[Rfam]
RNA: Small nucleolar RNA SNORA55
RNA sequence: GCACCUGCCUCCUGCCUGUUCCUCGCUGUGCGGUGCAGGUCUGGGGACACGGUGCCACAGCACAGCAGUGGGAAUCCAGAUGGGUUCUCUUCUACUGGUUUGGGACUCAUCUCUACACCUCUGCAACAAAG
Numbered sequence: 001g002c003a004c005c006u007g008c009c010u011c012c013u014g015c016c017u018g019u020u021c022c023u024c025g026c027u028g029u030g031c032g033g034u035g036c037a038g039g040u041c042u043g044g045g046g047a048c049a050c051g052g053u054g055c056c057a058c059a060g061c062a063c064a065g066c067a068g069u070g071g072g073a074a075u076c077c078a079g080a081u082g083g084g085u086u087c088u089c090u091u092c093u094a095c096u097g098g099u100u101u102g103g104g105a106c107u108c109a110u111c112u113c114u115a116c117a118c119c120u121c122u123g124c125a126a127c128a129a130a131g
Base pairs, nucleotide, nucleotide: 001055002054003053004052005051013047015045016044017043018042021039022038065124066123067122068121070119078112079111080110081109082108083107084106085105092103093102094101